[Rfam]
RNA sequence: GAUAACCAUAAAUUACUGCGGGAUCAAGGGUUGGAUCAGCUACCAUCCUUACCGCUUUCACGGCUGGAUCAUAUAGACCUGUACCAUUCAUUGCAUUCCAGGCGAAUAGCAAUGCACCAGCCCCUAAGAACAGCAGGUGGUGACCCAAAAUAAAACCCAGUUUCUUUGGAUCAUCCCA
Number, nucleotide and partner (000 for none) at each position: 001g000002a000003u000004a000005a000006c000007c000008a000009u000010a000011a000012a000013u000014u000015a000016c000017u000018g000019c000020g000021g000022g000023a000024u000025c000026a000027a000028g000029g000030g000031u000032u000033g000034g000035a000036u000037c000038a000039g000040c000041u000042a000043c000044c000045a000046u000047c000048c000049u000050u000051a000052c000053c000054g000055c000056u000057u000058u000059c000060a000061c000062g000063g000064c000065u000066g000067g000068a000069u000070c000071a000072u000073a000074u000075a000076g000077a000078c000079c000080u000081g000082u000083a000084c000085c000086a000087u000088u000089c000090a000091u000092u000093g000094c000095a000096u000097u000098c000099c000100a000101g000102g000103c000104g000105a000106a000107u000108a000109g000110c000111a000112a000113u000114g000115c000116a000117c000118c000119a000120g000121c000122c000123c000124c000125u000126a000127a000128g000129a000130a000131c000132a000133g000134c000135a000136g175137g174138u173139g172140g171141u170142g000143a000144c169145c168146c000147a166148a165149a000150a000151u000152a000153a000154a000155a000156c000157c000158c000159a000160g000161u000162u000163u000164c000165u148166u147167u000168g145169g144170a141171u140172c139173a138174u137175c136176c000177c000178a000
Antisense RNA which regulates isiA expression: a 178-nucleotide RNA from Romeriopsis navalis. Pairs were carried over by alignment from the consensus structure, which was predicted with PFOLD. A reference for the family is Duhring et al. (2006), "An internal antisense RNA regulates expression of the photosynthesis gene isiA", Proc Natl Acad Sci U S A. The organism belongs to Romeriopsis navalis, within Bacteria.